[Rfam]
Nucleotides: 068
Stems, first nucleotide, its partner, number of pairs: 004063003008059002011030003015027004035056004040052005
Number, partner (000 for none) and nucleotide at each position: 001000a002000g003000c004063u005062c006061g007000a008059c009058g010000g011030g012029g013028u014000c015027g016026a017025u018024c019000g020000c021000a022000c023000g024018g025017g026016u027015c028013a029012c030011c031000a032000g033000c034000a035056g036055g037054u038053a039000g040052u041051c042050g043049c044048g045000c046000a047000g048044c049043g050042c051041g052040a053038u054037g055036c056035c057000g058009u059008g060000g061006c062005g063004g064000u065000u066000c067000u068000c